Rfam assigns this 95-nucleotide sequence from Rhodospira trueperi to the family "Glycine riboswitch aptamer".
It scores 42 bits against the family's covariance model.
Lineage of the source: Bacteria > Pseudomonadati > Alphaproteobacteria > Rhodospirillaceae > Rhodospira.
RNA sequence: CCUCUGGAAAGCGGGCGCGCGCUGGCGUGCCUCACCGAAGAUGUAAGCCGUCCCCCUUCGUGAGGCGGUCAAUCUUUCAGGUUCCAAGACAGAGG
Dot-bracket structure: ((((((......((((............)))).(((((..(.(...((((((...........))))))....).))).))).......))))))